[Rfam]
This 58-nucleotide RNA sequence from Microbacterium sp. ABRD28 belongs to the Rfam family "msiK RNA". NCBI's taxonomy places the organism under Bacteria, Bacillati, Micrococcales, Microbacteriaceae, Microbacterium. A search with the family's covariance model found it, with a score of 65 bits.
RNA sequence: ACACCGCUCCAUUCACAACGGAUCGUCCGGCACGUACCUGCCGGUGAAGGAGAAGAAA
Numbered sequence: 001a002c003a004c005c006g007c008u009c010c011a012u013u014c015a016c017a018a019c020g021g022a023u024c025g026u027c028c029g030g031c032a033c034g035u036a037c038c039u040g041c042c043g044g045u046g047a048a049g050g051a052g053a054a055g056a057a058a
Stems, first nucleotide, its partner, number of pairs: 009050002012048004027044006